A member of the RNA family "U1 spliceosomal RNA" from Mauremys mutica, 158 nucleotides long. Gene Ontology terms of the family: U1 snRNP, mRNA 5'-splice site recognition and pre-mRNA 5'-splice site binding. U1 is a small nuclear RNA (snRNA) component of the spliceosome (involved in pre-mRNA splicing). Its 5' end forms complementary base pairs with the 5' splice junction, thus defining the 5' donor site of an intron. There are significant differences in sequence and secondary structure between metazoan and yeast U1 snRNAs, the latter being much longer (568 nucleotides as compared to 164 nucleotides in human). Nevertheless, secondary structure predictions suggest that all U1 snRNAs share a 'common core' consisting of helices I, II, the proximal region of III, and IV. This family does not contain the larger yeast sequences. It is annotated as a spliceosomal small nuclear RNA. The organism belongs to Mauremys, within Eukaryota.
RNA sequence: UAACUCACCUGGCAGGGGAGAGACUAUGAUUACAAGGUGGUUUUCCCAGGGUGAGGCUUAUCCAUUGCACUCCAAGUGUGGUGACCCCUGCCAUAUCCCCACUUGCAGGAAACUUGACUGCAUAAUUUGUGGUGGUGGUUGGGGGAACUUUCCCCGAA
Numbered sequence: 001u002a003a004c005u006c007a008c009c010u011g012g013c014a015g016g017g018g019a020g021a022g023a024c025u026a027u028g029a030u031u032a033c034a035a036g037g038u039g040g041u042u043u044u045c046c047c048a049g050g051g052u053g054a055g056g057c058u059u060a061u062c063c064a065u066u067g068c069a070c071u072c073c074a075a076g077u078g079u080g081g082u083g084a085c086c087c088c089u090g091c092c093a094u095a096u097c098c099c100c101a102c103u104u105g106c107a108g109g110a111a112a113c114u115u116g117a118c119u120g121c122a123u124a125a126u127u128u129g130u131g132g133u134g135g136u137g138g139u140u141g142g143g144g145g146a147a148c149u150u151u152c153c154c155c156g157a158a
Base pairs, nucleotide, nucleotide: 012121013120014119015118016047017046018045019044020043021042023041024040025039026038027037048089049088050087051086053085055082057080059078060077061076091116093114094112096110098108139158140157144154145153147151